[Rfam]
RNA sequence: AGCGGCCAUCCGCACCAUAUGCGGAAGAAUGACUGUUGGAACGGGGAGUCAU
Numbered sequence: 001a002g003c004g005g006c007c008a009u010c011c012g013c014a015c016c017a018u019a020u021g022c023g024g025a026a027g028a029a030u031g032a033c034u035g036u037u038g039g040a041a042c043g044g045g046g047a048g049u050c051a052u
Stems, first nucleotide, its partner, number of pairs: 005050001009045004015039003021036004
RNA: Norovirus cis-acting replication element (CRE)
Organism: Norovirus norwalkense